[Rfam]
RNA: MIR390 microRNA precursor family
RNA sequence: UGAAAGAAUCCUUAAAGCUCAGGAGGGAUAGCGCCGAGGAUGAUGAAUGAUGAAGUUUUGCAUGACUUUUUUUCAAUGCGUUGUAUGUUGGCGCUAUCUAUCCUGAGCAUUAUGGUUUCUUCCU
Number, nucleotide and partner (000 for none) at each position: 001u000002g000003a000004a000005a000006g000007a000008a000009u000010c115011c000012u000013u000014a000015a000016a000017g108018c107019u106020c105021a104022g103023g102024a101025g000026g099027g098028a097029u096030a095031g094032c093033g092034c091035c090036g000037a000038g000039g000040a000041u000042g000043a000044u000045g000046a000047a000048u000049g000050a000051u000052g000053a000054a000055g000056u000057u000058u000059u000060g000061c000062a000063u000064g000065a000066c000067u000068u000069u000070u000071u000072u000073u000074c000075a000076a000077u000078g000079c000080g000081u000082u000083g000084u000085a000086u000087g000088u000089u000090g035091g034092c033093g032094c031095u030096a029097u028098c027099u026100a000101u024102c023103c022104u021105g020106a019107g018108c017109a000110u000111u000112a000113u000114g000115g010116u000117u000118u000119c000120u000121u000122c000123c000124u000